[Rfam]
RNA sequence: AGCCUGAUGUGGCUUAAUGCAACAUUGAAGGUAAAGAUAAUCCCCUGGAGUAAACAUGAGCGAUAAAAUUGUUCACCUGACCGAU
Numbered sequence: 001a002g003c004c005u006g007a008u009g010u011g012g013c014u015u016a017a018u019g020c021a022a023c024a025u026u027g028a029a030g031g032u033a034a035a036g037a038u039a040a041u042c043c044c045c046u047g048g049a050g051u052a053a054a055c056a057u058g059a060g061c062g063a064u065a066a067a068a069u070u071g072u073u074c075a076c077c078u079g080a081c082c083g084a085u
Base pairs, nucleotide, nucleotide: 008065009064010063012061014059015058016057022051023050025048026047027046030043031042069084070083071082073080074079
Rfam assigns this 85-nucleotide sequence from Erwinia sorbitola to the family "TrxA 5' UTR thermometer". Rfam classes the family as an RNA thermoregulator. On this family, see Righetti et al., Proc Natl Acad Sci U S A 2016: "Temperature-responsive in vitro RNA structurome of Yersinia pseudotuberculosis". Involved in protection against oxidative stress.